[Rfam]
RNA sequence: CUCUUAUCAAGAGUGGUGGAGGGAAGUGCCCGAUGAUACCACGGCAACCGUCUUUUAGACAAGGUGCCAAGUCACUGUUAUUUAUUUAACGAAGAUGAGAG
Numbered sequence: 001c002u003c004u005u006a007u008c009a010a011g012a013g014u015g016g017u018g019g020a021g022g023g024a025a026g027u028g029c030c031c032g033a034u035g036a037u038a039c040c041a042c043g044g045c046a047a048c049c050g051u052c053u054u055u056u057a058g059a060c061a062a063g064g065u066g067c068c069a070a071g072u073c074a075c076u077g078u079u080a081u082u083u084a085u086u087u088a089a090c091g092a093a094g095a096u097g098a099g100a101g
Base pairs, nucleotide, nucleotide: 001101002100003099004098005097006096007095008094013042014041015040016039017038021031022030023029025076026075027074028073043068044067045066046065048064049063050060051059052058053057072093077090078089079088080087